Record summary
Shown here is a 98-nucleotide RNA sequence, a member of the family "skipping-rope RNA".
RNA sequence: AAUUACUGAGGAUAGAAAGAAGGCUAUUGCGCACGAAAGUGUCAAGUGUAGGGUUAUAAACUCGAUGAGAUGUGGGAACAAUUGCCCCACCAGUUAAU
Numbered sequence: 001a002a003u004u005a006c007u008g009a010g011g012a013u014a015g016a017a018a019g020a021a022g023g024c025u026a027u028u029g030c031g032c033a034c035g036a037a038a039g040u041g042u043c044a045a046g047u048g049u050a051g052g053g054u055u056a057u058a059a060a061c062u063c064g065a066u067g068a069g070a071u072g073u074g075g076g077a078a079c080a081a082u083u084g085c086c087c088c089a090c091c092a093g094u095u096a097a098u
Base pairs, nucleotide, nucleotide: 002098003097004096005095006093007092008091011028012027013026014025015024019083020082030067031042032041033040034039072090073089074088075087076086
It is annotated as a small RNA.